[Rfam]
RNA sequence: GGUCAUGAGUGUCAGCGAAAAGCCCUGGCUCGCUGGCCGGCAACCCUCGCGACGCGGUGGGGUGCCCCAGGUGACGACCGGACCGGAAGACUUUCGGUAAGCGCGAGCC
Numbered sequence: 001g002g003u004c005a006u007g008a009g010u011g012u013c014a015g016c017g018a019a020a021a022g023c024c025c026u027g028g029c030u031c032g033c034u035g036g037c038c039g040g041c042a043a044c045c046c047u048c049g050c051g052a053c054g055c056g057g058u059g060g061g062g063u064g065c066c067c068c069a070g071g072u073g074a075c076g077a078c079c080g081g082a083c084c085g086g087a088a089g090a091c092u093u094u095c096g097g098u099a100a101g102c103g104c105g106a107g108c109c
Base pairs, nucleotide, nucleotide: 001079002078003077004076009038011037012036013035014034015033016032021030022029039066040065041064044062045061046060048057082098083097084096085095086094087093088092